[Rfam]
Nucleotides: 136
Base pairs, nucleotide, nucleotide: 004056005055006054007053016043017042018041019040069123070122071121072120088110
Number, partner (000 for none) and nucleotide at each position: 001000c002000g003000u004056c005055c006054c007053a008000u009000u010000u011000u012000a013000g014000u015000g016043c017042u018041a019040c020000u021000u022000u023000u024000u025000c026000a027000c028000u029000u030000u031000c032000c033000a034000g035000a036000a037000u038000a039000a040019g041018u042017g043016g044000c045000u046000a047000u048000g049000c050000u051000a052000a053007u054006g055005g056004g057000a058000u059000a060000a061000a062000g063000a064000a065000u066000g067000u068000u069123g070122c071121u072120g073000u074000g075000g076000a077000c078000u079000g080000a081000a082000a083000g084000g085000g086000a087000a088110g089000a090000u091000u092000a093000u094000a095000u096000u097000u098000c099000u100000g101000c102000a103000u104000c105000u106000u107000c108000u109000c110088u111000c112000c113000u114000a115000u116000u117000a118000a119000a120072u121071g122070g123069c124000a125000g126000g127000a128000c129000a130000u131000g132000u133000u134000u135000u136000g